[Rfam]
This 387-nucleotide sequence from Candidatus Chromulinivorax destructor belongs to the Rfam family "transfer-messenger RNA". The match comes from Rfam's covariance-model search (158 bits). Lineage of the source: Bacteria > Bacteria candidate phyla > Candidatus Babelota > Candidatus Chromulinivoracaceae > Candidatus Chromulinivorax. By type it is a non-coding RNA gene. On this family, see Felden et al., RNA 1997: "Probing the structure of the Escherichia coli 10Sa RNA (tmRNA)". Gene Ontology term of the family: RNA catabolic process.
RNA sequence: GGGGGCGUACUGGCUUCGACGUAUUGUUAAUCGCUAGGGGUGCAUGUCGAGCUUUCAUUGUGUGCUCGUAAAACAAAUGAUGAAAACAAAUAAAUGCAGAAUCUAACGAUUACGCUGAUGUAUCAAUUCAGGGCUUUGCUUUUGCAUAAACCUGUUUGAUCAUUCUUGUUAGGGCGACGUAUCUAUUCGUCAAACUAACUCGUAUUAUAAAAAUAUAGGUUUCACGCUGUAGGUUAAUUUGUUUUGUAAAGCGUGAAUAUCACAAAACAGAGUUAAAUAUAUUGUUUUGUCUUCGAGACGAUAUUUGACUAUAUUCGAAGAAUAAGCAUGUAGUACCUGUAGAGAAAGGUAGUGCGGACAUGGGUUCGACUCCCAUCGCCUCCACCA
Dot-bracket structure: (((((((............(((((((((..((.(((.(((((((((([[[[[.(((((((...]]]]].........)))))))...........................................................................[.[[.[......[.[......((((((....]...]......].]].].......))))))..((((((.((........[[[[[..)).)))))).........]]]]].((((((((((....(((..[[[...)))..))))))))))........]]]....)))))...))))).))).))..)))))))))...(((((.......))))))))))))....